Rfam assigns this 171-nucleotide RNA sequence from cyanobacterium endosymbiont of Rhopalodia gibberula to the family "Ribosomal protein L10 leader". The organism belongs to Cyanobacteriota, within Bacteria. A reference for the family is Yakhnin et al. (2015), "Ribosomal protein L10(L12)4 autoregulates expression of the Bacillus subtilis rplJL operon by a transcription attenuation mechanism", Nucleic Acids Res. By type it is a cis-regulatory leader. The family's consensus secondary structure was predicted with CMfinder.

RNA sequence: AUGCUUGUUUGGCUUAUGCCGCAGACAGCAGGGGCGAUUUGCUUAAUAUCCUGCCGAGGUUGAGGCCUGAAGAAAGUUAAGUAGUAAAGAUUUAAAGGAUUAAUUUACUUUUUGUCUUCUUCUUAUCCAACCUCAGCCCCGGCAAAACGCUGGGGGUUUCUUUUUUUUGCU
Dot-bracket structure: ...........................(((((((((...)))......))))))............................................................................(((((((...........)))))))................